Annotation
Rfam assigns this 79-nucleotide RNA from Hermetia illucens to the family "drz-agam-1 ribozyme". The family's consensus secondary structure is taken from published work. Lineage of the source: Eukaryota > Pancrustacea > Neoptera > Aparaglossata > Hermetia.
[Rfam]
Nucleotides: 079
Stems, first nucleotide, its partner, number of pairs: 012079003016075001018073002021033003045065003049061004
Number, partner (000 for none) and nucleotide at each position: 001000u002000a003000c004000u005000a006000c007000c008000a009000a010000a011000c012079c013078c014077u015000g016075u017000c018073u019072u020000c021033a022032c023031c024000u025000c026000c027000a028000c029000g030000u031023g032022g033021u034000g035000a036000c037000u038000g039000c040000u041000g042000g043000g044000a045065g046064u047063u048000c049061u050060u051059u052058c053000u054000u055000a056000a057000c058052g059051a060050a061049a062000a063047g064046a065045u066000g067000c068000a069000g070000a071000c072019g073018g074000a075016g076000a077014a078013g079012g